RNA sequence: UCAAGGCCACUGGGACAGUAGAGGGAGGAAUCGCAGAAAUCACUCCAGGAGCAACUGAGAGACCUUGCUUCUACUUUACCAGGUCCUGCUGGCCCAGA
Numbered sequence: 001u002c003a004a005g006g007c008c009a010c011u012g013g014g015a016c017a018g019u020a021g022a023g024g025g026a027g028g029a030a031u032c033g034c035a036g037a038a039a040u041c042a043c044u045c046c047a048g049g050a051g052c053a054a055c056u057g058a059g060a061g062a063c064c065u066u067g068c069u070u071c072u073a074c075u076u077u078a079c080c081a082g083g084u085c086c087u088g089c090u091g092g093c094c095c096a097g098a
Base pairs, nucleotide, nucleotide: 005094006093007092008091009090011088012087013086014085015084016083017075018074019073020072021071022070023069024068025066026065027064028063031060032059034057035056036055040050041049
RNA: mir-936 microRNA precursor family
Organism: Homo sapiens